[Rfam]
RNA sequence: UGGGUGUGAGUAUUACAUCAGGUACUGGUGUGAUAUUCAGACAACCAGUACUUGUGUUAUACUUACGCUCA
Numbered sequence: 001u002g003g004g005u006g007u008g009a010g011u012a013u014u015a016c017a018u019c020a021g022g023u024a025c026u027g028g029u030g031u032g033a034u035a036u037u038c039a040g041a042c043a044a045c046c047a048g049u050a051c052u053u054g055u056g057u058u059a060u061a062c063u064u065a066c067g068c069u070c071a
Base pairs, nucleotide, nucleotide: 001071002070003069004068005067006066009063010062011061012060015057016056017055018054021052022051023050024049025048026047027046028045029044
Dot-bracket structure: ((((((..((((..((((..(((((((((..............))))))))).))))..))))..))))))
Rfam assigns this 71-nucleotide RNA sequence from Apis mellifera to the family "mir-12 microRNA precursor family". NCBI's taxonomy places the organism under Eukaryota, Arthropoda, Allotriocarida, Endopterygota, Apis. On this family, see Werren et al., Science 2010: "Functional and evolutionary insights from the genomes of three parasitoid Nasonia species". Pairs were carried over by alignment from the consensus structure, which was predicted with RNAalifold. Rfam links the family to the GO terms RISC complex and miRNA-mediated post-transcriptional gene silencing.